[Rfam]
RNA sequence: AUGAUGAGUAGAAGCGGUCAGGGGUUAUCUCCGGGACAUUGCUCAUAGA
Numbered sequence: 001a002u003g004a005u006g007a008g009u010a011g012a013a014g015c016g017g018u019c020a021g022g023g024g025u026u027a028u029c030u031c032c033g034g035g036a037c038a039u040u041g042c043u044c045a046u047a048g049a
Stems, first nucleotide, its partner, number of pairs: 005045006015034001018036002021032004
RNA: Xanthine riboswitch aptamer (NMT1 RNA)